Shown here is an 87-nucleotide RNA sequence from Ceratodon purpureus, a member of the family "mir-160 microRNA precursor family". On this family, see Rhoades et al., Cell 2002: "Prediction of plant microRNA targets". Gene Ontology terms of the family: miRNA-mediated post-transcriptional gene silencing and RISC complex. The family's consensus secondary structure was predicted with PFOLD. The organism belongs to Ceratodon, within Eukaryota.
RNA sequence: AUCUGCCUGGCUCCCUGCAUGCCACCUGCGAAGCUUGCCAAAGAGUUUGCCAGGAUUCAUAGCUGGCAUUCAGGGGGUCAAGCAGAC
Numbered sequence: 001a002u003c004u005g006c007c008u009g010g011c012u013c014c015c016u017g018c019a020u021g022c023c024a025c026c027u028g029c030g031a032a033g034c035u036u037g038c039c040a041a042a043g044a045g046u047u048u049g050c051c052a053g054g055a056u057u058c059a060u061a062g063c064u065g066g067c068a069u070u071c072a073g074g075g076g077g078u079c080a081a082g083c084a085g086a087c
Base pairs, nucleotide, nucleotide: 002086003085004084005083006082008080009079010078011077012076013075014074016072017071019069020068021067022066023065024064027061028060